Annotation: radC RNA: a 134-nucleotide sequence from Pseudomonas sp. M47T1. A search with the family's covariance model found it, with a score of 70 bits.
RNA sequence: AAGAGGUGCAAUGCGCUGGCUAGCCAGCAUCCCAAAUAGCCAGGACCUGUAAGGCUAAGUCACCCCUGUGAUGGUCCAGCCCAAGUGCGAUCCGCGUUCGGUAGCUCGCACGGUCACCUUCGGGUGAUGAACGC
Numbered sequence: 001a002a003g004a005g006g007u008g009c010a011a012u013g014c015g016c017u018g019g020c021u022a023g024c025c026a027g028c029a030u031c032c033c034a035a036a037u038a039g040c041c042a043g044g045a046c047c048u049g050u051a052a053g054g055c056u057a058a059g060u061c062a063c064c065c066c067u068g069u070g071a072u073g074g075u076c077c078a079g080c081c082c083a084a085g086u087g088c089g090a091u092c093c094g095c096g097u098u099c100g101g102u103a104g105c106u107c108g109c110a111c112g113g114u115c116a117c118c119u120u121c122g123g124g125u126g127a128u129g130a131a132c133g134c
Stems, first nucleotide, its partner, number of pairs: 011030002015028005037057005044076004059072005107133002113128006